Description
The family of this 77-nucleotide RNA sequence from Alligator sinensis is "Mammalian CPEB3 ribozyme". The source organism's lineage runs through Eukaryota, Opisthokonta, Bilateria, Amniota and Alligator.
RNA sequence: AGUGCCAAGCUCAAGGCCACAGCAGGAGCACUCACCACGUGGCUUCGUCAGAUUAUAAGAAGUCUGCGAGUUCUACU
Numbered sequence: 001a002g003u004g005c006c007a008a009g010c011u012c013a014a015g016g017c018c019a020c021a022g023c024a025g026g027a028g029c030a031c032u033c034a035c036c037a038c039g040u041g042g043c044u045u046c047g048u049c050a051g052a053u054u055a056u057a058a059g060a061a062g063u064c065u066g067c068g069a070g071u072u073c074u075a076c077u
Stems, first nucleotide, its partner, number of pairs: 013045001015044004021077002024074004028040002049066006

Pairs were carried over by alignment from the consensus structure, which is taken from published work.